MIR168 microRNA precursor family: a 149-nucleotide RNA sequence from Punica granatum.
It scores 102 bits against the family's covariance model.
Rfam links the family to the GO terms miRNA-mediated post-transcriptional gene silencing and RISC complex.

RNA sequence: UCACCGGCGGUCUCUGAUUCGCUUGGUGCAGGUCGGGAACCGAUUCGCAGCUCCGCUCACCGGGCGGUUGCGCCGCUUUGAGAUUCCUUUGCUCCGAGCGCAUAUCGAAUCCCGCCUUGCAUCAACUGAAUCGGAGGCCGGCGGUGAAA
Numbered sequence: 001u002c003a004c005c006g007g008c009g010g011u012c013u014c015u016g017a018u019u020c021g022c023u024u025g026g027u028g029c030a031g032g033u034c035g036g037g038a039a040c041c042g043a044u045u046c047g048c049a050g051c052u053c054c055g056c057u058c059a060c061c062g063g064g065c066g067g068u069u070g071c072g073c074c075g076c077u078u079u080g081a082g083a084u085u086c087c088u089u090u091g092c093u094c095c096g097a098g099c100g101c102a103u104a105u106c107g108a109a110u111c112c113c114g115c116c117u118u119g120c121a122u123c124a125a126c127u128g129a130a131u132c133g134g135a136g137g138c139c140g141g142c143g144g145u146g147a148a149a
Stems, first nucleotide, its partner, number of pairs: 013135002017131004023125010034114005041107004